Rfam assigns this 71-nucleotide RNA sequence from Candidula unifasciata to the family "mir-252 microRNA precursor family".
The source organism's lineage runs through Eukaryota, Lophotrochozoa, Helicina, Helicoidea and Candidula.
On this family, see Li et al., BMC Genomics 2009: "Direct sequencing and expression analysis of a large number of miRNAs in Aedes aegypti and a multi-species survey of novel mosquito miRNAs".
The base pairs follow the family's consensus structure, which was predicted with RNAalifold.
It scores 47 bits against the family's covariance model.
Rfam links the family to the GO terms RISC complex and miRNA-mediated post-transcriptional gene silencing.
The family is grouped with related families in Rfam's "mir-252 microRNA precursor family".
[Rfam]
RNA sequence: GCUCAUUUCUAAGUACUGGUGCCGCGGGAUGGUGGACUCAACUCCAGCGGCUCUGGUGCUUACUACAGGGC
Numbered sequence: 001g002c003u004c005a006u007u008u009c010u011a012a013g014u015a016c017u018g019g020u021g022c023c024g025c026g027g028g029a030u031g032g033u034g035g036a037c038u039c040a041a042c043u044c045c046a047g048c049g050g051c052u053c054u055g056g057u058g059c060u061u062a063c064u065a066c067a068g069g070g071c
Base pairs, nucleotide, nucleotide: 001071002070003069004068007065010062011061012060013059014058015057016056017055018054019053024048025047027045028044029043